[Rfam]
RNA sequence: UCUCAGGCUGUGACCAUCUACAGGGAAGCACUUUCUAUGGUCAGAAAAAGAAAGUGCAUCCUUUUAGAGUGUUACUAUUUGAGA
Numbered sequence: 001u002c003u004c005a006g007g008c009u010g011u012g013a014c015c016a017u018c019u020a021c022a023g024g025g026a027a028g029c030a031c032u033u034u035c036u037a038u039g040g041u042c043a044g045a046a047a048a049a050g051a052a053a054g055u056g057c058a059u060c061c062u063u064u065u066a067g068a069g070u071g072u073u074a075c076u077a078u079u080u081g082a083g084a
Stems, first nucleotide, its partner, number of pairs: 001084005007078001010075005017068002020065001022063005028057008038049001
Dot-bracket structure: (((((.(..(((((..((.(.(((((.((((((((..(..........))))))))).))))).).))..)))))..).)))))

This 84-nucleotide sequence from Macaca mulatta belongs to the Rfam family "mir-515 microRNA precursor family".
The source organism's lineage runs through Eukaryota, Metazoa, Euteleostomi, Sarcopterygii and Macaca.
Rfam links the family to the GO terms miRNA-mediated post-transcriptional gene silencing and RISC complex.
Its Rfam clan is "mir-290 clan".
Rfam's curators put it in the seed alignment.
Rfam 15.1 lists 1,056 matches to the family in 27 species.